[Rfam]
Source information: The record is a 154-nucleotide RNA from Pollutimonas nitritireducens, which matches "radC RNA" in Rfam. The family's consensus secondary structure is taken from published work.
RNA sequence: AACCUUACGGCAUGUUCGCUGGCGUAGCCGGCAGCAACCCAGGCAGUCAAGGCCAUCAAGACUGCGGCGCACCUAUCGUUCGCUAGCUGACCUCAUCUUCUCGGACGUUCAUCGUCCAUUCCACCCCCACGGGAUCUUUCAUCCCUUGGGGUGA
Numbered sequence: 001a002a003c004c005u006u007a008c009g010g011c012a013u014g015u016u017c018g019c020u021g022g023c024g025u026a027g028c029c030g031g032c033a034g035c036a037a038c039c040c041a042g043g044c045a046g047u048c049a050a051g052g053c054c055a056u057c058a059a060g061a062c063u064g065c066g067g068c069g070c071a072c073c074u075a076u077c078g079u080u081c082g083c084u085a086g087c088u089g090a091c092c093u094c095a096u097c098u099u100c101u102c103g104g105a106c107g108u109u110c111a112u113c114g115u116c117c118a119u120u121c122c123a124c125c126c127c128c129a130c131g132g133g134a135u136c137u138u139u140c141a142u143c144c145c146u147u148g149g150g151g152u153g154a
Stems, first nucleotide, its partner, number of pairs: 013036002015033001018032006043065006051088003066084004071079002122153002128148002131145005
It is annotated as a cis-regulatory element.